[Rfam]
RNA sequence: AUCGUUACCGCUUCUCGAGGUUCAUGCUUAAGAGCUGGUUGUGGUUCUUGAGCUCUGGAAAGUGAAGCAAAAUGCUUAGUGGUUCCUCUCGCUAUCCGGGGCAGAAUUCUCUUUGAUGUUACUGGACGUCGAGGAACUACAUUU
Numbered sequence: 001a002u003c004g005u006u007a008c009c010g011c012u013u014c015u016c017g018a019g020g021u022u023c024a025u026g027c028u029u030a031a032g033a034g035c036u037g038g039u040u041g042u043g044g045u046u047c048u049u050g051a052g053c054u055c056u057g058g059a060a061a062g063u064g065a066a067g068c069a070a071a072a073u074g075c076u077u078a079g080u081g082g083u084u085c086c087u088c089u090c091g092c093u094a095u096c097c098g099g100g101g102c103a104g105a106a107u108u109c110u111c112u113u114u115g116a117u118g119u120u121a122c123u124g125g126a127c128g129u130c131g132a133g134g135a136a137c138u139a140c141a142u143u144u
Base pairs, nucleotide, nucleotide: 002071004068005067008064010063011062012061013060016058019055020054026053027052028051029050030049033048034047082137083136084135085134086133087132088131090128091127095126096125097124098123099122105114

Background
Shown here is a 144-nucleotide RNA from Oryza punctata, a member of the family "Small nucleolar RNA snoR136". It is annotated as an H/ACA-box small nucleolar RNA. On this family, see Chen and Wu, Nucleic Acids Res 2009: "Mining small RNA sequencing data: a new approach to identify small nucleolar RNAs in Arabidopsis". The match comes from Rfam's covariance-model search (50 bits). Gene Ontology terms of the family: RNA processing and nucleolus.